[Rfam]
RNA sequence: UGACUUGAAAUCGCGCGCGGUUCGGCACAUAUUCGUUGUGUCCUUCGGGACUAUGGACAUAAACGCGCUCGUAAUAAGCGGAUCGGACCCGGGGGCGGUACCCGGCGACUCCACCAAAUCACCCAUCGUUGGGGUGCAUGGGGUCGAAACAGGAUCGACGGACGUCUAAAGGGGUAGCUUUGUCUCGGUGAGGUACCACCGAUAUCGGUCCGAAAAAGUACAAUUGCCAACGACAAUCGUGCUCCGGUCGCCCUUGCUGCGUAAGCAGUUCGGGAUACCGAAACUUAAGUCCUUGCGCCUAGCAGCGUAAGGCGGGGUUCGCAGGCACCUGGCAACAGAAGCCUGCACU
Numbered sequence: 001u002g003a004c005u006u007g008a009a010a011u012c013g014c015g016c017g018c019g020g021u022u023c024g025g026c027a028c029a030u031a032u033u034c035g036u037u038g039u040g041u042c043c044u045u046c047g048g049g050a051c052u053a054u055g056g057a058c059a060u061a062a063a064c065g066c067g068c069u070c071g072u073a074a075u076a077a078g079c080g081g082a083u084c085g086g087a088c089c090c091g092g093g094g095g096c097g098g099u100a101c102c103c104g105g106c107g108a109c110u111c112c113a114c115c116a117a118a119u120c121a122c123c124c125a126u127c128g129u130u131g132g133g134g135u136g137c138a139u140g141g142g143g144u145c146g147a148a149a150c151a152g153g154a155u156c157g158a159c160g161g162a163c164g165u166c167u168a169a170a171g172g173g174g175u176a177g178c179u180u181u182g183u184c185u186c187g188g189u190g191a192g193g194u195a196c197c198a199c200c201g202a203u204a205u206c207g208g209u210c211c212g213a214a215a216a217a218g219u220a221c222a223a224u225u226g227c228c229a230a231c232g233a234c235a236a237u238c239g240u241g242c243u244c245c246g247g248u249c250g251c252c253c254u255u256g257c258u259g260c261g262u263a264a265g266c267a268g269u270u271c272g273g274g275a276u277a278c279c280g281a282a283a284c285u286u287a288a289g290u291c292c293u294u295g296c297g298c299c300u301a302g303c304a305g306c307g308u309a310a311g312g313c314g315g316g317g318u319u320c321g322c323a324g325g326c327a328c329c330u331g332g333c334a335a336c337a338g339a340a341g342c343c344u345g346c347a348c349u
Stems, first nucleotide, its partner, number of pairs: 040051004055185005065178002067175004079164002083161003089105005106146007186201004192211002195209003315330004321346006
A member of the RNA family "Alphaproteobacteria transfer-messenger RNA" from Rhodobacteraceae bacterium THAF1, 349 nucleotides long. Bacterial tmRNA, also known as 10Sa RNA or SsrA, is named for its dual tRNA and mRNA-like properties. Its role is to liberate the mRNA from a stalled ribosome. To accomplish this part of the tmRNA is used as a reading frame that ends in a translation stop signal. The broken mRNA is replaced in the ribosome by the tmRNA and translation of the tmRNA leads to addition of a proteolysis tag to the incomplete protein enabling recognition by a protease. Recently a number of permuted tmRNA genes have been found encoded in two parts. tmRNAs have been identified in eubacteria and some chloroplasts but are absent from archaeal and eukaryote nuclear genomes. Taxonomically the source falls in Paracoccaceae (Bacteria, Pseudomonadati, Alphaproteobacteria, Rhodobacterales). The base pairs follow the family's consensus structure, which is taken from published work.